[Rfam]
RNA sequence: AAUCUGUCAUGGAUAACCCAGUGGAAGGCUCACCGCUAUGCCAAUUACCUUGCUUCGGUCGCCAAGACCAGCAGGAAAGGUGCCUGGUACGAAUCCUGGGGUUGGCAUUUUCACUCGUGCGAGUAAUCCACGACGCUGGAAGCCACUAAGCAAUGGAAAUGACCCUUGAGGGAAGCAAUUCUGCAGAGACAUUUCCACCCCGGGAUGGCGUCGCCAGAUUACACCGUCCUGUUACAGGGAAGUUGGCAAUUUGGUGUGACAACUACUAUU
Numbered sequence: 001a002a003u004c005u006g007u008c009a010u011g012g013a014u015a016a017c018c019c020a021g022u023g024g025a026a027g028g029c030u031c032a033c034c035g036c037u038a039u040g041c042c043a044a045u046u047a048c049c050u051u052g053c054u055u056c057g058g059u060c061g062c063c064a065a066g067a068c069c070a071g072c073a074g075g076a077a078a079g080g081u082g083c084c085u086g087g088u089a090c091g092a093a094u095c096c097u098g099g100g101g102u103u104g105g106c107a108u109u110u111u112c113a114c115u116c117g118u119g120c121g122a123g124u125a126a127u128c129c130a131c132g133a134c135g136c137u138g139g140a141a142g143c144c145a146c147u148a149a150g151c152a153a154u155g156g157a158a159a160u161g162a163c164c165c166u167u168g169a170g171g172g173a174a175g176c177a178a179u180u181c182u183g184c185a186g187a188g189a190c191a192u193u194u195c196c197a198c199c200c201c202g203g204g205a206u207g208g209c210g211u212c213g214c215c216a217g218a219u220u221a222c223a224c225c226g227u228c229c230u231g232u233u234a235c236a237g238g239g240a241a242g243u244u245g246g247c248a249a250u251u252u253g254g255u256g257u258g259a260c261a262a263c264u265a266c267u268a269u270u
Stems, first nucleotide, its partner, number of pairs: 002014003020267005029258001031256005038250001039248008048239005055071001057069004072231001074229003079225004084217005089211003093206009103145001104143001106142001108141004112135001115133005121128002146150001154197007165188003172181003
Shown here is a 270-nucleotide sequence from Penicillium griseofulvum, a member of the family "Fungal signal recognition particle RNA". The family is grouped with related families in Rfam's "SRP clan". Rfam links the family to the GO terms SRP-dependent cotranslational protein targeting to membrane, signal sequence recognition, signal recognition particle, endoplasmic reticulum targeting and signal recognition particle, plasma membrane targeting. By type it is a non-coding RNA gene. For this family Rfam cites "Towards the structure of the mammalian signal recognition particle" (Wild et al., Curr Opin Struct Biol, 2002). Taxonomically the source falls in Penicillium (Eukaryota, leotiomyceta, Eurotiomycetidae, Aspergillaceae).